[Rfam]
The family of this 104-nucleotide RNA from Halobacillus yeomjeoni is "Purine riboswitch aptamer". Gene Ontology term of the family: purine nucleobase biosynthetic process. The base pairs follow the family's consensus structure, which is taken from published work.

RNA sequence: CAACACCAACAAAAAAUUGCUCGUAUAUCCUCAGUAAUAUGGUCUGAGUGUUUCUACCUGGUUCCCACGGAAAGAGCUGGACUACGAGUCAAAGAAAACAGGUG
Numbered sequence: 001c002a003a004c005a006c007c008a009a010c011a012a013a014a015a016a017u018u019g020c021u022c023g024u025a026u027a028u029c030c031u032c033a034g035u036a037a038u039a040u041g042g043u044c045u046g047a048g049u050g051u052u053u054c055u056a057c058c059u060g061g062u063u064c065c066c067a068c069g070g071a072a073a074g075a076g077c078u079g080g081a082c083u084a085c086g087a088g089u090c091a092a093a094g095a096a097a098a099c100a101g102g103u104g
Stems, first nucleotide, its partner, number of pairs: 019089007030048005058080007